The record is an 80-nucleotide RNA from Medicago truncatula, which matches "MIR5269 microRNA precursor family" in Rfam. Its family is annotated with miRNA-mediated post-transcriptional gene silencing and RISC complex in the Gene Ontology. Lineage of the source: Eukaryota > Magnoliopsida > Fabales > Fabaceae > Medicago. It scores 62 bits against the family's covariance model. Pairs were carried over by alignment from the consensus structure, which was predicted with RNAalifold.

RNA sequence: UUUGAUGAAAUCAAUGUGAGUUCAACAUUUUGAAAAUGGAUCUUACUUAAAGUGGUUGGACCUACGUUGAUUUCAUUUAU
Numbered sequence: 001u002u003u004g005a006u007g008a009a010a011u012c013a014a015u016g017u018g019a020g021u022u023c024a025a026c027a028u029u030u031u032g033a034a035a036a037u038g039g040a041u042c043u044u045a046c047u048u049a050a051a052g053u054g055g056u057u058g059g060a061c062c063u064a065c066g067u068u069g070a071u072u073u074c075a076u077u078u079a080u
Stems, first nucleotide, its partner, number of pairs: 002079001004077015023058003026054007